L2-Alphaproteobacteria ribosomal protein leader: a 60-nucleotide RNA sequence from Oceanomicrobium pacificus.
A reference for the family is Eckert and Weinberg (2020), "Discovery of 20 novel ribosomal leader candidates in bacteria and archaea", BMC Microbiol.
Rfam classes the family as a cis-regulatory leader.
RNA sequence: GGGCACCUUCGGGGGCCUAAACCGCGGGCUUCGGCUCGCAUAGCUAACGGAAGACAGAAA
Numbered sequence: 001g002g003g004c005a006c007c008u009u010c011g012g013g014g015g016c017c018u019a020a021a022c023c024g025c026g027g028g029c030u031u032c033g034g035c036u037c038g039c040a041u042a043g044c045u046a047a048c049g050g051a052a053g054a055c056a057g058a059a060a
Stems, first nucleotide, its partner, number of pairs: 001018004006014003024039006
Dot-bracket structure: ((((.(((...))))))).....((((((....)))))).....................